[Rfam]
RNA sequence: GUUGUGAGGCAGUGUGAUUAGCUUGCCGUUUGAUUAUGACGUCACGGCAGCUACUCGCCCUGCCCCACAAA
Numbered sequence: 001g002u003u004g005u006g007a008g009g010c011a012g013u014g015u016g017a018u019u020a021g022c023u024u025g026c027c028g029u030u031u032g033a034u035u036a037u038g039a040c041g042u043c044a045c046g047g048c049a050g051c052u053a054c055u056c057g058c059c060c061u062g063c064c065c066c067a068c069a070a071a
Stems, first nucleotide, its partner, number of pairs: 002070005008064002011061002014058004019053003023049001025048005

mir-34 microRNA precursor family: a 71-nucleotide RNA from Branchiostoma belcheri. Its Rfam clan is "mir-34 clan". About the family: Human mir-34a was discovered computationally and later experimentally verified. On this family, see Houbaviy et al., Dev Cell 2003: "Embryonic stem cell-specific MicroRNAs". The sequence is in the family's curated seed alignment. The base pairs follow the family's consensus structure, which was predicted with RNAalifold.